[Rfam]
RNA: Guanidine-II riboswitch aptamer (mini-ykkC)
Organism: Variovorax sp. OV329
RNA sequence: UGCCGGAGACGACUCCGGCAUGCAUGAACAACCCGGCGGGACGGCCCGC
Number, nucleotide and partner (000 for none) at each position: 001u020002g019003c018004c017005g016006g015007a014008g013009a000010c000011g000012a000013c008014u007015c006016c005017g004018g003019c002020a001021u000022g000023c000024a000025u000026g000027a000028a000029c000030a000031a000032c000033c000034c000035g000036g049037c048038g047039g046040g045041a000042c000043g000044g000045c040046c039047c038048g037049c036